[Rfam]
RNA sequence: CGAGGCUGGAAGUUAACGUAGUCCCGGGUUGCAUCGCUGUACUUGGCCCUGGGACUAUGUCAACUUACAACUGCG
Numbered sequence: 001c002g003a004g005g006c007u008g009g010a011a012g013u014u015a016a017c018g019u020a021g022u023c024c025c026g027g028g029u030u031g032c033a034u035c036g037c038u039g040u041a042c043u044u045g046g047c048c049c050u051g052g053g054a055c056u057a058u059g060u061c062a063a064c065u066u067a068c069a070a071c072u073g074c075g
Base pairs, nucleotide, nucleotide: 004072005071007069008068010066011065012064013063014062016060017059018058019057020056021055022054023053024052025051027049028048
RNA: mir-1990 microRNA precursor family